[Rfam]
RNA: MIR319 microRNA precursor family
Organism: Vitis rotundifolia
RNA sequence: UAGAAAUGGAGUUCCUUGCAGACCAAAAUAAGUAGCAGAAGAUGAACUUCAUGCUCCUUGUUUUGGGACUGAAUAGAGCUCCUAGUUCUU
Numbered sequence: 001u002a003g004a005a006a007u008g009g010a011g012u013u014c015c016u017u018g019c020a021g022a023c024c025a026a027a028a029u030a031a032g033u034a035g036c037a038g039a040a041g042a043u044g045a046a047c048u049u050c051a052u053g054c055u056c057c058u059u060g061u062u063u064u065g066g067g068a069c070u071g072a073a074u075a076g077a078g079c080u081c082c083u084a085g086u087u088c089u090u
Base pairs, nucleotide, nucleotide: 007084008082009081010080011079012078013077014076017073020070021069023066024065025064026063027062